This 258-nucleotide part of an RNA from Methanohalophilus mahii belongs to the Rfam family "Archaeal large subunit ribosomal RNA". Its Rfam clan is "LSU clan".
[Rfam]
RNA sequence: GAGUGUAUUUCAAUGGCGAAGGCUAACCGAGAGGGGAGCCGAAGCGAAAGCAACAAGCAUGCAGCCUUCGGGCAAGAUGCGGCGUAUACAAGUGCGUGGAGUCAUUGGAAUACGACCCGAAGCCGGGUGAUCUAGGCGUGGGCAGGUUGAAGCGUGGCGAAAGCUACGUGGAGGACCGCAAGCGGUACUGACCUGCAAAUCGUUCGUGUGACCUGCGUCUUGGAGUGAAAGGCUAAUCAAACCCGGCAUCAGCUGGUU
Numbered sequence: 001g002a003g004u005g006u007a008u009u010u011c012a013a014u015g016g017c018g019a020a021g022g023c024u025a026a027c028c029g030a031g032a033g034g035g036g037a038g039c040c041g042a043a044g045c046g047a048a049a050g051c052a053a054c055a056a057g058c059a060u061g062c063a064g065c066c067u068u069c070g071g072g073c074a075a076g077a078u079g080c081g082g083c084g085u086a087u088a089c090a091a092g093u094g095c096g097u098g099g100a101g102u103c104a105u106u107g108g109a110a111u112a113c114g115a116c117c118c119g120a121a122g123c124c125g126g127g128u129g130a131u132c133u134a135g136g137c138g139u140g141g142g143c144a145g146g147u148u149g150a151a152g153c154g155u156g157g158c159g160a161a162a163g164c165u166a167c168g169u170g171g172a173g174g175a176c177c178g179c180a181a182g183c184g185g186u187a188c189u190g191a192c193c194u195g196c197a198a199a200u201c202g203u204u205c206g207u208g209u210g211a212c213c214u215g216c217g218u219c220u221u222g223g224a225g226u227g228a229a230a231g232g233c234u235a236a237u238c239a240a241a242c243c244c245g246g247c248a249u250c251a252g253c254u255g256g257u258u
Stems, first nucleotide, its partner, number of pairs: 005113013021040004027034002044051002057080004064073003083096004116256002119253001123246006132222001134220009143210001145177004152169007182207004187203002190201002224234003